[Rfam]
Nucleotides: 330
Base pairs, nucleotide, nucleotide: 012312013311014310015309016308017307018306020304021303023302024301026299027298028297029296030295031294032293033292036286037285038284039283040282041058042057043056044055047070048069049068050067051066052065102123103122104121105120106119107118108117109116124161125160126159127158128157129156131152132151133150134149137147139175140174141173142172143171144170178208179207180206181205183203185201186200191222192221193220194219195218225260226259227258229256230255231254232253233252236249237248238247240278241277242276243275244272318330319329320328
Number, partner (000 for none) and nucleotide at each position: 001000a002000c003000u004000g005000g006000u007000u008000u009000c010000g011000a012312c013311g014310g015309g016308g017307g018306a019000a020304g021303g022000a023302u024301u025000g026299g027298c028297a029296g030295g031294g032293a033292u034000a035000g036286c037285g038284a039283g040282c041058c042057g043056g044055g045000g046000u047070u048069c049068c050067a051066u052065c053000a054000g055044c056043c057042c058041g059000u060000a061000a062000u063000a064000c065052g066051g067050u068049g069048g070047g071000c072000c073000u074000u075000u076000a077000a078000u079000u080000a081000a082000a083000c084000g085000c086000c087000a088000a089000a090000g091000a092000a093000a094000a095000c096000u097000a098000c099000g100000c101000u102123u103122u104121a105120g106119c107118u108117g109116c110000u111000u112000a113000a114000u115000u116109g117108c118107g119106g120105c121104u122103a123102a124161c125160c126159u127158c128157c129156u130000a131152c132151c133150c134149g135000u136000u137147g138000c139175u140174c141173c142172c143171g144170c145000g146000g147137u148000g149134c150133g151132g152131g153000a154000c155000u156129a157128g158127g159126g160125g161124g162000u163000c164000a165000a166000c167000u168000u169000a170144g171143c172142g173141g174140g175139a176000u177000a178208c179207u180206c181205c182000g183203g184000u185201c186200c187000c188000a189000a190000u191222u192221c193220u194219c195218g196000g197000a198000g199000g200186g201185g202000c203183c204000a205181g206180g207179g208178g209000g210000a211000a212000a213000c214000c215000c216000a217000u218195c219194g220193a221192g222191a223000u224000a225260g226259u227258u228000c229256c230255g231254g232253c233252a234000u235000a236249g237248c238247c239000u240278g241277c242276c243275u244272g245000c246000g247238g248237g249236c250000g251000c252233u253232g254231c255230c256229g257000u258227a259226g260225c261000g262000a263000a264000a265000c266000c267000c268000a269000a270000a271000a272244c273000a274000c275243a276242g277241g278240c279000u280000g281000c282040g283039c284038u285037c286036g287000g288000a289000g290000a291000g292033g293032u294031u295030c296029c297028u298027g299026u300000g301024g302023g303021u304020u305000c306018u307017c308016c309015u310014u311013c312012g313000g314000a315000c316000a317000g318330g319329g320328g321000u322000u323000c324000g325000a326000u327000c328320c329319u330318u
transfer-messenger RNA: a 330-nucleotide sequence from Clostridiales bacterium PH28_bin88. The organism belongs to Eubacteriales, within Bacteria. The base pairs follow the family's consensus structure, which is taken from published work.